[Rfam]
RNA sequence: CAGUGACACCGGGCCCCUCUGGCGGUGAGUCUUCACCGUGAUGUCGGAGUCACUGU
Numbered sequence: 001c002a003g004u005g006a007c008a009c010c011g012g013g014c015c016c017c018u019c020u021g022g023c024g025g026u027g028a029g030u031c032u033u034c035a036c037c038g039u040g041a042u043g044u045c046g047g048a049g050u051c052a053c054u055g056u
Stems, first nucleotide, its partner, number of pairs: 006050002009047004022039007
RNA: terC RNA